[Rfam]
Shown here is a 196-nucleotide sequence from Rhodococcus rhodnii, a member of the family "c-di-AMP riboswitch aptamer (ydaO/yuaA leader)". On this family, see Barrick et al., Proc Natl Acad Sci U S A 2004: "New RNA motifs suggest an expanded scope for riboswitches in bacterial genetic control". The match comes from Rfam's covariance-model search (61 bits). Gene Ontology terms of the family: cyclic-di-AMP binding and regulation of gene expression. The base pairs follow the family's consensus structure.

RNA sequence: GCCUGGUCACCGCUCAAUCGGAACUCCUCGCGGAGUCCCGAACCGGGAACCCACGAUUCCACCGGGGUGAAUCCCGACGGAACGGCACGGAACCACUGCGCCACGCGCACAGCGGAUCCGGUCGGACCGAAGGGUAGGGCUGAUCUUCCCAGCCCGAACCCGUCAGCUAACCCGGUCGGCGGACGACAGGAAGAAA
Numbered sequence: 001g002c003c004u005g006g007u008c009a010c011c012g013c014u015c016a017a018u019c020g021g022a023a024c025u026c027c028u029c030g031c032g033g034a035g036u037c038c039c040g041a042a043c044c045g046g047g048a049a050c051c052c053a054c055g056a057u058u059c060c061a062c063c064g065g066g067g068u069g070a071a072u073c074c075c076g077a078c079g080g081a082a083c084g085g086c087a088c089g090g091a092a093c094c095a096c097u098g099c100g101c102c103a104c105g106c107g108c109a110c111a112g113c114g115g116a117u118c119c120g121g122u123c124g125g126a127c128c129g130a131a132g133g134g135u136a137g138g139g140c141u142g143a144u145c146u147u148c149c150c151a152g153c154c155c156g157a158a159c160c161c162g163u164c165a166g167c168u169a170a171c172c173c174g175g176u177c178g179g180c181g182g183a184c185g186a187c188a189g190g191a192a193g194a195a196a
Base pairs, nucleotide, nucleotide: 011181012180013179014178018041019040020039042176043175044174045173046172047171052064065161066160067159073134074133075132137155138154139153140152